[Rfam]
RNA sequence: UGACUGCGAUGAAGUGAGAGGUUGCUGACACACCCGGCCGCUUUGCCAUGGCAAGGUGUUCAGGUUUUUCUCACGGAGAACUGUCUAACGUGAUGUAGGCGA
Numbered sequence: 001u002g003a004c005u006g007c008g009a010u011g012a013a014g015u016g017a018g019a020g021g022u023u024g025c026u027g028a029c030a031c032a033c034c035c036g037g038c039c040g041c042u043u044u045g046c047c048a049u050g051g052c053a054a055g056g057u058g059u060u061c062a063g064g065u066u067u068u069u070c071u072c073a074c075g076g077a078g079a080a081c082u083g084u085c086u087a088a089c090g091u092g093a094u095g096u097a098g099g100c101g102a
Stems, first nucleotide, its partner, number of pairs: 014074003018070004025063004082101004
RNA: S10-Clostridia ribosomal protein leader
Organism: Bacillus subtilis